Archaeal large subunit ribosomal RNA: a 97-nucleotide part of an RNA from Haloarcula marismortui. The sequence is in the family's curated seed alignment. A reference for the family is Cannone et al. (2002), "The comparative RNA web (CRW) site: an online database of comparative sequence and structure information for ribosomal, intron, and other RNAs", BMC Bioinformatics. Pairs were carried over by alignment from the consensus structure, which is taken from published work.
RNA sequence: GACAGGGCAUACAAGGUCCCUUGACGAAUGACCGAGACGCGAGUCUCCAGUAAGACUCACGGGAAGCCGAUGUUCUGUCGUACGUUUUGAAAAACGA
Numbered sequence: 001g002a003c004a005g006g007g008c009a010u011a012c013a014a015g016g017u018c019c020c021u022u023g024a025c026g027a028a029u030g031a032c033c034g035a036g037a038c039g040c041g042a043g044u045c046u047c048c049a050g051u052a053a054g055a056c057u058c059a060c061g062g063g064a065a066g067c068c069g070a071u072g073u074u075c076u077g078u079c080g081u082a083c084g085u086u087u088u089g090a091a092a093a094a095c096g097a
Stems, first nucleotide, its partner, number of pairs: 001079010015068002019062002022059003029053001034047005083096003
Dot-bracket structure: ((((((((((....((..((.(((....(....(((((....))))).....)...))).))....)).))))))))))...(((........))).